[Rfam]
The record is a 102-nucleotide RNA sequence from Anaeroplasma bactoclasticum, which matches "TPP riboswitch aptamer (THI element)" in Rfam. Vitamin B(1) in its active form thiamin pyrophosphate (TPP) is an essential coenzyme that is synthesised by coupling of pyrimidine and thiazole moieties in bacteria. The previously detected thiamin-regulatory element, thi box was extended, resulting in a new, highly conserved RNA secondary structure, the THI element, which is widely distributed in eubacteria and also occurs in some archaea. The family's consensus secondary structure is taken from published work. Gene Ontology term of the family: thiamine pyrophosphate binding.

RNA sequence: UGUCAUAUUAAGGGGAGCCUUAAAGGCUGAGAGUAUAUUAAGUUAUAGACCCUUGACCUGAUCUAGGUAAUGCUAGCGUAGGGAAUAAUGUGAAGGUAUUUU
Numbered sequence: 001u002g003u004c005a006u007a008u009u010a011a012g013g014g015g016a017g018c019c020u021u022a023a024a025g026g027c028u029g030a031g032a033g034u035a036u037a038u039u040a041a042g043u044u045a046u047a048g049a050c051c052c053u054u055g056a057c058c059u060g061a062u063c064u065a066g067g068u069a070a071u072g073c074u075a076g077c078g079u080a081g082g083g084a085a086u087a088a089u090g091u092g093a094a095g096g097u098a099u100u101u102u
Base pairs, nucleotide, nucleotide: 006090007089008088009087010086011053012052013051014050017027018026019025020024034047035046036045037044057082058081059080060079063076064075065074066073